The record is a 72-nucleotide RNA sequence from Strongylocentrotus purpuratus, which matches "Mammalian CPEB3 ribozyme" in Rfam.
RNA sequence: AGUAAAAACAGUGGGGCCAUUGAAGGAGCGUUCACGUCGCGGUCUGUCAGAUGAAAAUCUGCGAAUCCUUCA
Numbered sequence: 001a002g003u004a005a006a007a008a009c010a011g012u013g014g015g016g017c018c019a020u021u022g023a024a025g026g027a028g029c030g031u032u033c034a035c036g037u038c039g040c041g042g043u044c045u046g047u048c049a050g051a052u053g054a055a056a057a058u059c060u061g062c063g064a065a066u067c068c069u070u071c072a
Base pairs, nucleotide, nucleotide: 015044016043017042018041021072022071023070024069025068026067027066028040029039030038048061049060050059051058052057
The base pairs follow the family's consensus structure, which is taken from published work.